[Rfam]
Shown here is a 109-nucleotide sequence, a member of the family "LOOT RNA". By type it is a small RNA.

RNA sequence: UACCUAAACCUUCGGGCAUGGUAGAAAAAACAGUCAAAAGCGUAGAAACCUCUCCGUCAGGUAACUUUUGACUGUCAUGACUGGAAACUAUCAUGGGGUAGAAAUACCU
Numbered sequence: 001u002a003c004c005u006a007a008a009c010c011u012u013c014g015g016g017c018a019u020g021g022u023a024g025a026a027a028a029a030a031c032a033g034u035c036a037a038a039a040g041c042g043u044a045g046a047a048a049c050c051u052c053u054c055c056g057u058c059a060g061g062u063a064a065c066u067u068u069u070g071a072c073u074g075u076c077a078u079g080a081c082u083g084g085a086a087a088c089u090a091u092c093a094u095g096g097g098g099u100a101g102a103a104a105u106a107c108c109u
Stems, first nucleotide, its partner, number of pairs: 001023004009016002031074010048062004076095005083088001096109005